RNA sequence: AGACUUCCUCGUUAGGUGAGGCUUCUGCAUAGAGCACACGUCACUGCCCGGAAAUGUCGAAAGACACCAAUGGGUUAACAGGUAUGGCCGGAUUAAGGCUUUACCUAAUGUGACUGAGGCUUUAUUCAGUCUCUAGCUAUGUAUGUGCCAAAGCUCGAACGAGUGAGGAAGAUG
Numbered sequence: 001a002g003a004c005u006u007c008c009u010c011g012u013u014a015g016g017u018g019a020g021g022c023u024u025c026u027g028c029a030u031a032g033a034g035c036a037c038a039c040g041u042c043a044c045u046g047c048c049c050g051g052a053a054a055u056g057u058c059g060a061a062a063g064a065c066a067c068c069a070a071u072g073g074g075u076u077a078a079c080a081g082g083u084a085u086g087g088c089c090g091g092a093u094u095a096a097g098g099c100u101u102u103a104c105c106u107a108a109u110g111u112g113a114c115u116g117a118g119g120c121u122u123u124a125u126u127c128a129g130u131c132u133c134u135a136g137c138u139a140u141g142u143a144u145g146u147g148c149c150a151a152a153g154c155u156c157g158a159a160c161g162a163g164u165g166a167g168g169a170a171g172a173u174g
Base pairs, nucleotide, nucleotide: 005170006169007168008167009166010165011160012159013096015155016154017153020149021148022147025145026143027142028141029140030139031138032137040114041113042112043111044110046075047074048073049072050071055066056065057064058063081105082104083103084102087099088098089097116133117132118131119130120129

Record summary:
M-box riboswitch aptamer (ykoK leader): a 174-nucleotide RNA from Desulfofundulus thermobenzoicus. It scores 138 bits against the family's covariance model. The literature on the family includes a 2004 paper in Proc Natl Acad Sci U S A by Barrick et al., "New RNA motifs suggest an expanded scope for riboswitches in bacterial genetic control".